[Rfam]
RNA sequence: CCAAGAUUAAUUUAGCAAAAGGGAUACACAUGCUUAAGAUACAUAUGUAACCAUCGAAACUAUCUUGGGAAGGUCUUAGACGUUAGUUUUUCGAAAAAUACGCUCUAGAAGAGCGGUCUCGUCAAUCGUGACGCGGAGAAACAGCGGUCAUCCGUGCUUUUCUUUACCGUGGACGCCAAGUUAACGUCUUUCCCACUCUAUCCCAAUCAUUUUGUCCUUCUCUGUUUCUUUACCUUUGUCGAUCUUUCGCCUUCCCUGUAUCUCUUCUGUUCUCUCUUGCGUUUGUUCUCUUCGAUUCUUGACUCGACUCUACGACUUGGCGGAUGUAUCAGAGUGGGGAAGCUCUGGUAGAGGUCGCCCGGUCAUGCCGAUGGAAAUUCCCGCGACUCGUAAUUUUAGCACAAUCUUCAAGCUGUCUCGUCGGGAGGAAAUUUAAUUCAGAUUAUAUUCUGAUCUUGA
Numbered sequence: 001c002c003a004a005g006a007u008u009a010a011u012u013u014a015g016c017a018a019a020a021g022g023g024a025u026a027c028a029c030a031u032g033c034u035u036a037a038g039a040u041a042c043a044u045a046u047g048u049a050a051c052c053a054u055c056g057a058a059a060c061u062a063u064c065u066u067g068g069g070a071a072g073g074u075c076u077u078a079g080a081c082g083u084u085a086g087u088u089u090u091u092c093g094a095a096a097a098a099u100a101c102g103c104u105c106u107a108g109a110a111g112a113g114c115g116g117u118c119u120c121g122u123c124a125a126u127c128g129u130g131a132c133g134c135g136g137a138g139a140a141a142c143a144g145c146g147g148u149c150a151u152c153c154g155u156g157c158u159u160u161u162c163u164u165u166a167c168c169g170u171g172g173a174c175g176c177c178a179a180g181u182u183a184a185c186g187u188c189u190u191u192c193c194c195a196c197u198c199u200a201u202c203c204c205a206a207u208c209a210u211u212u213u214g215u216c217c218u219u220c221u222c223u224g225u226u227u228c229u230u231u232a233c234c235u236u237u238g239u240c241g242a243u244c245u246u247u248c249g250c251c252u253u254c255c256c257u258g259u260a261u262c263u264c265u266u267c268u269g270u271u272c273u274c275u276c277u278u279g280c281g282u283u284u285g286u287u288c289u290c291u292u293c294g295a296u297u298c299u300u301g302a303c304u305c306g307a308c309u310c311u312a313c314g315a316c317u318u319g320g321c322g323g324a325u326g327u328a329u330c331a332g333a334g335u336g337g338g339g340a341a342g343c344u345c346u347g348g349u350a351g352a353g354g355u356c357g358c359c360c361g362g363u364c365a366u367g368c369c370g371a372u373g374g375a376a377a378u379u380c381c382c383g384c385g386a387c388u389c390g391u392a393a394u395u396u397u398a399g400c401a402c403a404a405u406c407u408u409c410a411a412g413c414u415g416u417c418u419c420g421u422c423g424g425g426a427g428g429a430a431a432u433u434u435a436a437u438u439c440a441g442a443u444u445a446u447a448u449u450c451u452g453a454u455c456u457u458g459a
Base pairs, nucleotide, nucleotide: 002458003457004456007453008452009451012412013411015409017407021066022065023064024063025062038051040049041048042047075441076440078438079437085388086387087386088385101115102114103113104112105111116132117131118130120128121127133384134383135382136381138379139378153370154369415432416431418429419428